[Rfam]
RNA sequence: AAGUACCUCCGAGUCUCGCCUGUGAUGGGGGAGAUAGGAGUAACGGCUGGUUGGCACAGCCAUCGACUUUCGUGUUCGAUUCAGAGAGCGGUUCGUUUGAACCGCGAGAACACGAAGGCUCGUAAACCCUAAUAUCCCAAACCAGCGGCGCGAUACCGUGGGAUUCCCGCGUGUUCACGCGCGGGA
Numbered sequence: 001a002a003g004u005a006c007c008u009c010c011g012a013g014u015c016u017c018g019c020c021u022g023u024g025a026u027g028g029g030g031g032a033g034a035u036a037g038g039a040g041u042a043a044c045g046g047c048u049g050g051u052u053g054g055c056a057c058a059g060c061c062a063u064c065g066a067c068u069u070u071c072g073u074g075u076u077c078g079a080u081u082c083a084g085a086g087a088g089c090g091g092u093u094c095g096u097u098u099g100a101a102c103c104g105c106g107a108g109a110a111c112a113c114g115a116a117g118g119c120u121c122g123u124a125a126a127c128c129c130u131a132a133u134a135u136c137c138c139a140a141a142c143c144a145g146c147g148g149c150g151c152g153a154u155a156c157c158g159u160g161g162g163a164u165u166c167c168c169g170c171g172u173g174u175u176c177a178c179g180c181g182c183g184g185g186a
Stems, first nucleotide, its partner, number of pairs: 003044002007040004013035003016031002019028002045061005064122003068118002071114007090103005135163004165186009

Overview:
Sense overlapping transcript RNA 0042 (sot): a 186-nucleotide sequence from Halolamina salifodinae. About the family: It is associated with IS1341-type transposase (tnpB) genes, at the 3'-end in H. salinarum NRC-1. The tetraloop structural motif may be functional. The base pairs follow the family's consensus structure, which was predicted with RNAfold. Taxonomically the source falls in Halolamina (Archaea, Methanobacteriota, Halobacteriales, Haloferacaceae). The match comes from Rfam's covariance-model search (128 bits). A reference for the family is Gomes-Filho et al. (2015), "Sense overlapping transcripts in IS1341-type transposase genes are functional non-coding RNAs in archaea", RNA Biol.